[Rfam]
RNA sequence: AUUUUAAAGAGUUUGAUCCUGGCUCAGGAUUAACGCUGGCGGCAUGCCUAAUACAUGCAAAUCGAACGAAGCCUUUUAGGCUUAGUGGUGAACGGGUGAGUAACACGUAUCCAACCUACCCUUAAGUUGGGGAUAACUAGUCGAAAGAUUAGCUAAUACCGAAUAAUAACAUCAAUAUCGCAUGAGAAGAUGUAGAAAGUCGCGUUUGCGACGCUUUUGGAUGGGGGUGCGACGUAUCAGAUAGUUGGUGAGGUAAUGGCUCACCAAGUCAAUGACGCGUAGCUGUACUGAGAGGUAGAACAGCCACAAUGGGACUGAGACACGGCCCAUACUCCUACGGGAGGCAGCAGUAGGGAAUUUUUCACAAUGGGCGAAAGCCUUAUGAAGCAAUGCCGCGUGAACGAUGAAGGUCUUAUAGAUUGUAAAGUUCUUUUAUAUGGGAAGAAACGCUAAGAUAGGAAAUGAUUUUAGUUUGACUGUACCAUUUGAAUAAGUAUCGGCUAACUAUGUGCCAGCAGCCGCGGUAAUACAUAGGAUGCAAGCGUUAUCCGGAUUUACUG
Numbered sequence: 001a002u003u004u005u006a007a008a009g010a011g012u013u014u015g016a017u018c019c020u021g022g023c024u025c026a027g028g029a030u031u032a033a034c035g036c037u038g039g040c041g042g043c044a045u046g047c048c049u050a051a052u053a054c055a056u057g058c059a060a061a062u063c064g065a066a067c068g069a070a071g072c073c074u075u076u077u078a079g080g081c082u083u084a085g086u087g088g089u090g091a092a093c094g095g096g097u098g099a100g101u102a103a104c105a106c107g108u109a110u111c112c113a114a115c116c117u118a119c120c121c122u123u124a125a126g127u128u129g130g131g132g133a134u135a136a137c138u139a140g141u142c143g144a145a146a147g148a149u150u151a152g153c154u155a156a157u158a159c160c161g162a163a164u165a166a167u168a169a170c171a172u173c174a175a176u177a178u179c180g181c182a183u184g185a186g187a188a189g190a191u192g193u194a195g196a197a198a199g200u201c202g203c204g205u206u207u208g209c210g211a212c213g214c215u216u217u218u219g220g221a222u223g224g225g226g227g228u229g230c231g232a233c234g235u236a237u238c239a240g241a242u243a244g245u246u247g248g249u250g251a252g253g254u255a256a257u258g259g260c261u262c263a264c265c266a267a268g269u270c271a272a273u274g275a276c277g278c279g280u281a282g283c284u285g286u287a288c289u290g291a292g293a294g295g296u297a298g299a300a301c302a303g304c305c306a307c308a309a310u311g312g313g314a315c316u317g318a319g320a321c322a323c324g325g326c327c328c329a330u331a332c333u334c335c336u337a338c339g340g341g342a343g344g345c346a347g348c349a350g351u352a353g354g355g356a357a358u359u360u361u362u363c364a365c366a367a368u369g370g371g372c373g374a375a376a377g378c379c380u381u382a383u384g385a386a387g388c389a390a391u392g393c394c395g396c397g398u399g400a401a402c403g404a405u406g407a408a409g410g411u412c413u414u415a416u417a418g419a420u421u422g423u424a425a426a427g428u429u430c431u432u433u434u435a436u437a438u439g440g441g442a443a444g445a446a447a448c449g450c451u452a453a454g455a456u457a458g459g460a461a462a463u464g465a466u467u468u469u470a471g472u473u474u475g476a477c478u479g480u481a482c483c484a485u486u487u488g489a490a491u492a493a494g495u496a497u498c499g500g501c502u503a504a505c506u507a508u509g510u511g512c513c514a515g516c517a518g519c520c521g522c523g524g525u526a527a528u529a530c531a532u533a534g535g536a537u538g539c540a541a542g543c544g545u546u547a548u549c550c551g552g553a554u555u556u557a558c559u560g
Base pairs, nucleotide, nucleotide: 009025010024011023012022013021027550028549029548030547032546033545034544035543036542037541039396040395041394042393043392044391045389046388047354052352053351054350056349057348058347061089062088063087066086067085069083070082071081072080073079074078096307097306098305106231107230108229109228110227111226112225115224116223120220121219124216125215126214128162130160131159137152138151139150140149141148142147169193170192171191172190173189178185179184199212200211201210233279234278235277240270241269242268245267246266247265248264249263250262251261252260282304283303284302285301286297287296288295289294309330310329311328312327313326332343333342334341335340360386362385363384364383369380370379371378372377399430400429401428402427409421410420411419412418435487437485438484439483440482444477450471451470452469453468454467455466494539495538496537497536498535505534506533507532508531509530515522516521
Dot-bracket structure: ........(((((.......))))).((((.((((((.(((((((((....(((.(((..(((..((.((((((...)))))).)))))......(((.......(((((((..((...((..(((.(.((.....((((((....))))))......)).)......(((((....((....))...))))).....(((........))).)))..))..))))))))).(((....(((..((((((((.......)))))))))))......)))..((((((((....))))...))))))).(((((............))))).((((....))))...)))))).).....(.(((....((((....))))..)))).)).))))))..((((......((((.....)))).....))))....(.((((...(.....((((((..........)))))).....)....)))).)......(((((......(((((.....((....)).......)))))))))).))))))))))..........
Description:
The record is a 560-nucleotide part of an RNA from Ureaplasma urealyticum, which matches "Bacterial small subunit ribosomal RNA" in Rfam. Its Rfam clan is "SSU clan". Lineage of the source: Bacteria > Bacillati > Mycoplasmatota > Mycoplasmoidaceae > Ureaplasma urealyticum serovar 7.